[Rfam]
The record is a 60-nucleotide RNA from Fontibacillus phaseoli, which matches "Fluoride riboswitch aptamer (crcB RNA motif)" in Rfam.
The base pairs follow the family's consensus structure, which is taken from published work.
Rfam 15.1 lists 2,293 matches to the family in 1,982 species.
Its family is annotated with positive regulation of gene expression and response to fluoride in the Gene Ontology.
The match comes from Rfam's covariance-model search (62 bits).

RNA sequence: UCUAUUAUAGGCGAUGGAGUUCGCCAUAACCGCUGAAGAGCUGAUGACUCCUACCAGAGC
Numbered sequence: 001u002c003u004a005u006u007a008u009a010g011g012c013g014a015u016g017g018a019g020u021u022c023g024c025c026a027u028a029a030c031c032g033c034u035g036a037a038g039a040g041c042u043g044a045u046g047a048c049u050c051c052u053a054c055c056a057g058a059g060c
Stems, first nucleotide, its partner, number of pairs: 010025004016051006032041003